[Rfam]
RNA sequence: GUGUCACUAGGAGUUCCCUGAAAACACUUCGCGAGGCAUCAUCUUAAGAUCUCUUGUGAAGUGUUUGGGGGAACUCUUGGUGUCAC
Number, nucleotide and partner (000 for none) at each position: 001g000002u000003g000004u000005c082006a081007c080008u079009a078010g000011g076012a075013g074014u073015u072016c071017c070018c069019u068020g000021a000022a066023a065024a064025c063026a062027c061028u060029u059030c058031g057032c056033g055034a054035g053036g052037c000038a000039u000040c000041a000042u000043c000044u000045u000046a000047a000048g000049a000050u000051c000052u036053c035054u034055u033056g032057u031058g030059a029060a028061g027062u026063g025064u024065u023066u022067g000068g019069g018070g017071g016072a015073a014074c013075u012076c011077u000078u009079g008080g007081u006082g005083u000084c000085a000086c000

mir-395 microRNA precursor family: an 86-nucleotide RNA sequence from Setaria italica.
For this family Rfam cites "Computational Identification of Plant MicroRNAs and Their Targets, Including a Stress-Induced miRNA" (Jones-Rhoades and Bartel, Mol Cell, 2004).
Taxonomically the source falls in Setaria (Eukaryota, Viridiplantae, Streptophyta, Petrosaviidae).
Rfam 15.1 lists 2,798 matches to the family in 234 species.
Its family is annotated with miRNA-mediated post-transcriptional gene silencing and RISC complex in the Gene Ontology.
Rfam describes the family as follows. mir-395 was identified in both Arabidopsis thaliana and Oryza sativa computationally and was later experimentally verified. mir-395 is thought to target mRNAs coding for ATP sulphurylases. The mature sequence is excised from the 3' arm of the hairpin.